A member of the RNA family "SAM riboswitch aptamer (S box leader)" from Desulfurispira natronophila, 102 nucleotides long. Pairs were carried over by alignment from the consensus structure, which is taken from published work.
RNA sequence: UAUUCAUCAUGAGUAGUGGAGGGAACGGGCCCUGUGAAGCUACAGCAACCUUCCCAGCGAAAAGGUGCUACAUCCCGCAGUCAACUGACUGGAAGAUGAUCA
Numbered sequence: 001u002a003u004u005c006a007u008c009a010u011g012a013g014u015a016g017u018g019g020a021g022g023g024a025a026c027g028g029g030c031c032c033u034g035u036g037a038a039g040c041u042a043c044a045g046c047a048a049c050c051u052u053c054c055c056a057g058c059g060a061a062a063a064g065g066u067g068c069u070a071c072a073u074c075c076c077g078c079a080g081u082c083a084a085c086u087g088a089c090u091g092g093a094a095g096a097u098g099a100u101c102a
Base pairs, nucleotide, nucleotide: 001102004099005098006097007096008095013043014042015041016040017039021032022031023030026077027076028075029074044069045068046067047066049065050064051061052060053059073094078091079090080089081088082087